The family of this 143-nucleotide RNA from Cottoperca gobio is "Small nucleolar RNA SNORA79". The literature on the family includes a 2006 paper in RNA by Schattner et al., "A computational screen for mammalian pseudouridylation guide H/ACA RNAs". Rfam describes the family as follows. ACA65 (SNORA79) is a member of the H/ACA class of snoRNAs that guide the sites of modification of uridines to pseudouridines. This snoRNA was identified by computational screening and its expression in mouse experimentally verified by Northern blot and primer extension analysis. It scores 73 bits against the family's covariance model. Taxonomically the source falls in Cottoperca (Eukaryota, Bilateria, Craniata, Osteoglossocephalai). The family has 25 seed sequences and 944 matches in Rfam 15.1. Pairs were carried over by alignment from the consensus structure, which was predicted with RNAalifold.
[Rfam]
RNA sequence: UGACGUCGGUUCCUCCUCCUGUGUUCAGUGUUUCAGGUGGAUUUUACGACGUCACAGAGAAAUUCGGGUCUUUUUUCACCCAGAAAGCUUCCGGCUGCAGCCGACGAUCAAACGGCUUCCUGGUUUUGCGAGACCCAACAAAU
Numbered sequence: 001u002g003a004c005g006u007c008g009g010u011u012c013c014u015c016c017u018c019c020u021g022u023g024u025u026c027a028g029u030g031u032u033u034c035a036g037g038u039g040g041a042u043u044u045u046a047c048g049a050c051g052u053c054a055c056a057g058a059g060a061a062a063u064u065c066g067g068g069u070c071u072u073u074u075u076u077c078a079c080c081c082a083g084a085a086a087g088c089u090u091c092c093g094g095c096u097g098c099a100g101c102c103g104a105c106g107a108u109c110a111a112a113c114g115g116c117u118u119c120c121u122g123g124u125u126u127u128g129c130g131a132g133a134c135c136c137a138a139c140a141a142a143u
Stems, first nucleotide, its partner, number of pairs: 001054008014041003018037001020035002067135006080123004085118005094109001096107001